RNA: tRNA
Organism: methanogenic archaeon ISO4-H5
RNA sequence: GGGCGUAUGGGGUAGCUUGGAUAUCCUGAGGGCUUGCGGAGCCCCAGACUUGGGUUCGAAUCCCAAUACGCCCG
Numbered sequence: 001g002g003g004c005g006u007a008u009g010g011g012g013u014a015g016c017u018u019g020g021a022u023a024u025c026c027u028g029a030g031g032g033c034u035u036g037c038g039g040a041g042c043c044c045c046a047g048a049c050u051u052g053g054g055u056u057c058g059a060a061u062c063c064c065a066a067u068a069c070g071c072c073c074g
Base pairs, nucleotide, nucleotide: 001073002072003071004070005069006068007067010027011026012025030044031043032042033041050066051065052064053063054062